[Rfam]
RNA sequence: CCCAGAGGUAUUGAUAGGUGAAAUCAACUUUCGGGUUGAUCACUAGAAUUACACCAGCCUGCGCAGAUGCGCAGGUUUUUUUU
Numbered sequence: 001c002c003c004a005g006a007g008g009u010a011u012u013g014a015u016a017g018g019u020g021a022a023a024u025c026a027a028c029u030u031u032c033g034g035g036u037u038g039a040u041c042a043c044u045a046g047a048a049u050u051a052c053a054c055c056a057g058c059c060u061g062c063g064c065a066g067a068u069g070c071g072c073a074g075g076u077u078u079u080u081u082u083u
Stems, first nucleotide, its partner, number of pairs: 017055004023040006057076008
This 83-nucleotide RNA sequence belongs to the Rfam family "OmrA-B family". Rfam classes the family as a small RNA. The base pairs follow the family's consensus structure, which was predicted with WAR.